[Rfam]
RNA sequence: AUUCAUCAUUCGCUGAAUCCACCAGGAGCGGGGGAACCAAUUAUCCGGGGUGAAUCCUGCAGUGAUAUGCAGGUAGGGUCAUUUUGUAAUCACAGAUCCGAAUCCGUCAGCUAACCUCGUAAGCGUUAGGAAGAGAGUGG
Numbered sequence: 001a002u003u004c005a006u007c008a009u010u011c012g013c014u015g016a017a018u019c020c021a022c023c024a025g026g027a028g029c030g031g032g033g034g035a036a037c038c039a040a041u042u043a044u045c046c047g048g049g050g051u052g053a054a055u056c057c058u059g060c061a062g063u064g065a066u067a068u069g070c071a072g073g074u075a076g077g078g079u080c081a082u083u084u085u086g087u088a089a090u091c092a093c094a095g096a097u098c099c100g101a102a103u104c105c106g107u108c109a110g111c112u113a114a115c116c117u118c119g120u121a122a123g124c125g126u127u128a129g130g131a132a133g134a135g136a137g138u139g140g
Stems, first nucleotide, its partner, number of pairs: 011125004018027003028120006038047001048105003056073004076099004

The family of this 140-nucleotide sequence from Lihuaxuella thermophila is "c-di-AMP riboswitch aptamer (ydaO/yuaA leader)".